[Rfam]
RNA sequence: AUCGAGGCUACAGUCACACUUGGGUAUUGGUUAUUGCCUUAGUGUGCUAGAGUCCUCGAAGAGUAACUGCUGACCUUAUUCAUUGGUUGUGGCCCUCAUGGCACAGUCACCAGGUUAGUGACAUGC
Dot-bracket structure: .((((((((..((.((((((..((((........))))..))))))))..))).)))))..........(((((((.......(((.((((.(......).)))).)))..)))))))........
Background: Shown here is a 126-nucleotide RNA from Prolemur simus, a member of the family "Small nucleolar RNA SNORA3/SNORA45 family". By type it is an H/ACA-box small nucleolar RNA. Pairs were carried over by alignment from the consensus structure, which was predicted with RNAalifold. Its family is annotated with RNA processing and nucleolus in the Gene Ontology. About the family: The members of this family belong to the H/ACA class of snoRNAs which are thought to guide the sites of modification of uridines to pseudouridines. A search with the family's covariance model found it, with a score of 109 bits.